[Rfam]
RNA sequence: UUGUGCCAGGAUCGCCACCCGUCAGCGAGCAUUCGCCCACGGGUGCUCUCAUG
Number, nucleotide and partner (000 for none) at each position: 001u000002u000003g000004u000005g000006c000007c000008a000009g000010g000011a000012u000013c000014g000015c000016c045017a044018c043019c042020c041021g040022u039023c000024a000025g036026c035027g034028a033029g000030c000031a000032u000033u028034c027035g026036c025037c000038c000039a022040c021041g020042g019043g018044u017045g016046c000047u000048c000049u000050c000051a000052u000053g000

About this RNA: A member of the RNA family "ffh sRNA" from Rhabdonatronobacter sediminivivens, 53 nucleotides long. The family's RNA type in Rfam is small RNA. The base pairs follow the family's consensus structure, which is taken from published work. The literature on the family includes a 2009 paper in BMC Genomics by Meyer et al., "Identification of candidate structured RNAs in the marine organism 'Candidatus Pelagibacter ubique'".